The family of this 87-nucleotide sequence from Gossypium raimondii is "MIR7486 microRNA precursor family". Lineage of the source: Eukaryota > Viridiplantae > Streptophytina > Malvales > Gossypium. Gene Ontology terms of the family: RISC complex and miRNA-mediated post-transcriptional gene silencing. Pairs were carried over by alignment from the consensus structure, which was predicted with RNAalifold. The family has 9 seed sequences and 10,132 matches in Rfam 15.1.

RNA sequence: CACGUCAGCGCGCUUUGCUGACGUGGAAACAAAUCGCGUCCUCUGAAGCUCGAUUUGUUGCCAUGUCAGCAAAGCGCGCAGACGUGG
Numbered sequence: 001c002a003c004g005u006c007a008g009c010g011c012g013c014u015u016u017g018c019u020g021a022c023g024u025g026g027a028a029a030c031a032a033a034u035c036g037c038g039u040c041c042u043c044u045g046a047a048g049c050u051c052g053a054u055u056u057g058u059u060g061c062c063a064u065g066u067c068a069g070c071a072a073a074g075c076g077c078g079c080a081g082a083c084g085u086g087g
Stems, first nucleotide, its partner, number of pairs: 001086006008079014023064004028059009038049001